[Rfam]
Nucleotides: 105
Stems, first nucleotide, its partner, number of pairs: 014086003018082002023077005029070001031068003035064002
Number, partner (000 for none) and nucleotide at each position: 001000c002000a003000a004000a005000a006000u007000a008000a009000u010000a011000a012000c013000a014086a015085c016084g017000a018082g019081a020000a021000c022000a023077a024076u025075a026074u027073c028000a029070a030000a031068g032067a033066u034000a035064c036063u037000c038000u039000a040000g041000a042000a043000c044000a045000g046000c047000a048000u049000c050000g051000a052000c053000a054000a055000c056000a057000g058000c059000a060000g061000c062000a063036g064035g065000c066033a067032u068031u069000c070029u071000c072000g073027g074026a075025u076024a077023u078000g079000a080000g081019u082018c083000a084016u085015g086014u087000g088000g089000a090000g091000u092000a093000u094000u095000c096000a097000a098000g099000a100000a101000u102000u103000a104000c105000a
Ure2 internal ribosome entry site (IRES): a 105-nucleotide RNA from Saccharomyces pastorianus. The sequence is in the family's curated seed alignment. The organism belongs to Saccharomyces pastorianus, within Eukaryota. On this family, see Reineke et al., J Biol Chem 2008: "A small stem loop element directs internal initiation of the URE2 internal ribosome entry site in Saccharomyces cerevisiae".